[Rfam]
RNA sequence: AUUUGUCGUCUGUUUUAGUUGAAAUAUUGUCCAACUAAGACUUACAGCAGUUAAAUCA
Numbered sequence: 001a002u003u004u005g006u007c008g009u010c011u012g013u014u015u016u017a018g019u020u021g022a023a024a025u026a027u028u029g030u031c032c033a034a035c036u037a038a039g040a041c042u043u044a045c046a047g048c049a050g051u052u053a054a055a056u057c058a
Base pairs, nucleotide, nucleotide: 008045009044012041013040014039015038016037017036018035019034020033021032

Notes
A member of the RNA family "Lacto-rpoB RNA" from Streptococcus zalophi, 58 nucleotides long. It is annotated as a cis-regulatory element. A search with the family's covariance model found it, with a score of 78 bits.